[Rfam]
Shown here is a 134-nucleotide RNA from Trogon melanurus, a member of the family "Small nucleolar RNA SNORA17". Its family is annotated with nucleolus and RNA processing in the Gene Ontology. The match comes from Rfam's covariance-model search (72 bits). A reference for the family is Ofengand and Bakin (1997), "Mapping to nucleotide resolution of pseudouridine residues in large subunit ribosomal RNAs from representative eukaryotes, prokaryotes, archaebacteria, mitochondria and chloroplasts", J Mol Biol. Clan: SNORA17 clan. Taxonomically the source falls in Trogon (Eukaryota, Vertebrata, Dinosauria, Neognathae).
RNA sequence: GCUGCCACAGGCGUUGCAAGGGUGGCUGCUGUGGCACCUUUGUGUCAUUAGGUGGCAGAGAGAGACAGGCUGUGUUCUACGCCCGUUUGCUCGGAAACCCGUGAGCGCUCGGGAGUGAUUGAUAGCCCGACAGU
Numbered sequence: 001g002c003u004g005c006c007a008c009a010g011g012c013g014u015u016g017c018a019a020g021g022g023u024g025g026c027u028g029c030u031g032u033g034g035c036a037c038c039u040u041u042g043u044g045u046c047a048u049u050a051g052g053u054g055g056c057a058g059a060g061a062g063a064g065a066c067a068g069g070c071u072g073u074g075u076u077c078u079a080c081g082c083c084c085g086u087u088u089g090c091u092c093g094g095a096a097a098c099c100c101g102u103g104a105g106c107g108c109u110c111g112g113g114a115g116u117g118a119u120u121g122a123u124a125g126c127c128c129g130a131c132a133g134u
Stems, first nucleotide, its partner, number of pairs: 001056003005051001007049001010046003016043004021038004026033001064131001066129001068127006078118001082113004088107005
Dot-bracket structure: (((.(.(..(((...((((.((((.(......).)))).)))))))..).)..))).......(.(.((((((....(...((((..(((((..........)))))..))))....)...)))))).).)...